This 83-nucleotide sequence from Helianthus annuus belongs to the Rfam family "MIR397 microRNA precursor family". Taxonomically the source falls in Helianthus (Eukaryota, Tracheophyta, Asterales, Heliantheae alliance). The literature on the family includes a 2009 paper in BMC Genomics by Mica et al., "High throughput approaches reveal splicing of primary microRNA transcripts and tissue specific expression of mature microRNAs in Vitis vinifera".
[Rfam]
RNA sequence: AGUAAAAACAUAAUUGAGUGCAGAGUUGACGAAACAUUAGGUUUGAUGUGGUUUCAUCAACGCUGCACUCAAUGACGUUUUAA
Number, nucleotide and partner (000 for none) at each position: 001a000002g000003u000004a000005a000006a080007a079008a078009c077010a000011u075012a000013a073014u072015u071016g070017a069018g068019u067020g066021c065022a064023g063024a000025g061026u060027u059028g058029a000030c000031g055032a054033a053034a052035c051036a000037u000038u000039a000040g000041g000042u000043u000044u000045g000046a000047u000048g000049u000050g000051g035052u034053u033054u032055c031056a000057u000058c028059a027060a026061c025062g000063c023064u022065g021066c020067a019068c018069u017070c016071a015072a014073u013074g000075a011076c000077g009078u008079u007080u006081u000082a000083a000